[Rfam]
RNA sequence: CGGCGGCGGCAGCAAUGUCGUCGUUACUCCCGAAGGAGUCAGCAGAGGCCAUAGUACCGUUGACCUGACGGGAAGGGC
Numbered sequence: 001c002g003g004c005g006g007c008g009g010c011a012g013c014a015a016u017g018u019c020g021u022c023g024u025u026a027c028u029c030c031c032g033a034a035g036g037a038g039u040c041a042g043c044a045g046a047g048g049c050c051a052u053a054g055u056a057c058c059g060u061u062g063a064c065c066u067g068a069c070g071g072g073a074a075g076g077g078c
Stems, first nucleotide, its partner, number of pairs: 002025001004023008039046002048078003057071006
RNA: Group II catalytic intron D1-D4-1
Organism: Pontiella desulfatans